[Rfam]
RNA sequence: GUCCUGAAUUUGCCUCGGGCGGCCCGAGCGGCGCGGAGGGAACCGGGGAACCACCACCAUGGGGUGAAUCGGACGCCUCGGCCAGAGGCCGCCCGUAGGAGACCUUCCUGCUCCGAACCCGUCAGCUAACCCGGUAGGCGCGAAGGAAGGAAAG
Numbered sequence: 001g002u003c004c005u006g007a008a009u010u011u012g013c014c015u016c017g018g019g020c021g022g023c024c025c026g027a028g029c030g031g032c033g034c035g036g037a038g039g040g041a042a043c044c045g046g047g048g049a050a051c052c053a054c055c056a057c058c059a060u061g062g063g064g065u066g067a068a069u070c071g072g073a074c075g076c077c078u079c080g081g082c083c084a085g086a087g088g089c090c091g092c093c094c095g096u097a098g099g100a101g102a103c104c105u106u107c108c109u110g111c112u113c114c115g116a117a118c119c120c121g122u123c124a125g126c127u128a129a130c131c132c133g134g135u136a137g138g139c140g141c142g143a144a145g146g147a148a149g150g151a152a153a154g
Stems, first nucleotide, its partner, number of pairs: 002041003042135006052061002062120003070095003098114004

Rfam assigns this 154-nucleotide sequence from Streptomyces benahoarensis to the family "c-di-AMP riboswitch aptamer (ydaO/yuaA leader)".
From the family's description: This family represents a conserved RNA structure found upstream of the ydaO and yuaA genes in Bacillus subtilis and related genes in other bacteria.
The organism belongs to Streptomyces, within Bacteria.